ilvH RNA: a 68-nucleotide RNA from Rhodoferax ferrireducens. Lineage of the source: Bacteria > Pseudomonadati > Pseudomonadota > Burkholderiales > Rhodoferax ferrireducens.
RNA sequence: GACGAAUCUAUUGUUUGCCAAGCUCUGCGGUUACCGCCUCAGGGGUAGGGCAACGAAAAGAGGAAUCA
Numbered sequence: 001g002a003c004g005a006a007u008c009u010a011u012u013g014u015u016u017g018c019c020a021a022g023c024u025c026u027g028c029g030g031u032u033a034c035c036g037c038c039u040c041a042g043g044g045g046u047a048g049g050g051c052a053a054c055g056a057a058a059a060g061a062g063g064a065a066u067c068a
Stems, first nucleotide, its partner, number of pairs: 011056003015053005023044005029038003